RNA sequence: UGGAUGAGGACAAGGAAGAGGAGUAUGAUACAAGUAUGUAUCAUUUUAGUGAGCAUGUAGCUCCAGCGAGGGAGAGUAAGAGUUUGAGUGAAGCUUACAGAAACCCAAGCCUGUUGUAGAAGUGGUGCAAGAAGCAGGAUAAGUUCAUCUCGAAAUGCAUAACGAGUAUCAAGUCUUUGAAGGCUAUGGUUAGCUGCUCCUCUUCCAGCACAGCAAUACCG
Numbered sequence: 001u002g003g004a005u006g007a008g009g010a011c012a013a014g015g016a017a018g019a020g021g022a023g024u025a026u027g028a029u030a031c032a033a034g035u036a037u038g039u040a041u042c043a044u045u046u047u048a049g050u051g052a053g054c055a056u057g058u059a060g061c062u063c064c065a066g067c068g069a070g071g072g073a074g075a076g077u078a079a080g081a082g083u084u085u086g087a088g089u090g091a092a093g094c095u096u097a098c099a100g101a102a103a104c105c106c107a108a109g110c111c112u113g114u115u116g117u118a119g120a121a122g123u124g125g126u127g128c129a130a131g132a133a134g135c136a137g138g139a140u141a142a143g144u145u146c147a148u149c150u151c152g153a154a155a156u157g158c159a160u161a162a163c164g165a166g167u168a169u170c171a172a173g174u175c176u177u178u179g180a181a182g183g184c185u186a187u188g189g190u191u192a193g194c195u196g197c198u199c200c201u202c203u204u205c206c207a208g209c210a211c212a213g214c215a216a217u218a219c220c221g
Stems, first nucleotide, its partner, number of pairs: 001221003014206012
RNA: MIR854 microRNA precursor family
Organism: Arabidopsis lyrata